[Rfam]
The record is a 59-nucleotide RNA sequence from Phytoactinopolyspora halotolerans, which matches "msiK RNA" in Rfam.

Nucleotides: 059
Base pairs, nucleotide, nucleotide: 009051011049012048013047014046015045027044028043029042030041031040032039
Number, partner (000 for none) and nucleotide at each position: 001000u002000a003000c004000c005000c006000g007000u008000c009051c010000a011049c012048u013047u014046c015045a016000c017000u018000a019000c020000g021000g022000a023000u024000c025000g026000u027044c028043c029042g030041g031040c032039a033000c034000g035000u036000a037000c038000c039032u040031g041030c042029c043028g044027g045015u046014g047013a048012a049011g050000g051009g052000a053000a054000g055000c056000a057000g058000c059000a
The source organism's lineage runs through Bacteria, Actinomycetota, Actinomycetes, Jiangellales and Phytoactinopolyspora. Rfam classes the family as a cis-regulatory element.